Source information
mir-33 microRNA precursor family: a 67-nucleotide sequence from Bugula neritina. On this family, see Li et al., BMC Genomics 2009: "Direct sequencing and expression analysis of a large number of miRNAs in Aedes aegypti and a multi-species survey of novel mosquito miRNAs". Lineage of the source: Eukaryota > Lophotrochozoa > Bryozoa > Cheilostomatida > Bugula. Gene Ontology terms of the family: RISC complex and gene silencing by miRNA. Pairs were carried over by alignment from the consensus structure, which was predicted with PFOLD.
[Rfam]
RNA sequence: CUGUGGUGCAUUGUAGUUGCAUUGCAUGUCUUCUUAUCUGUGCAGUGUUCCUGCAUUGCAAUCACAG
Numbered sequence: 001c002u003g004u005g006g007u008g009c010a011u012u013g014u015a016g017u018u019g020c021a022u023u024g025c026a027u028g029u030c031u032u033c034u035u036a037u038c039u040g041u042g043c044a045g046u047g048u049u050c051c052u053g054c055a056u057u058g059c060a061a062u063c064a065c066a067g
Stems, first nucleotide, its partner, number of pairs: 001067004006063001007060004012055005019048001021046007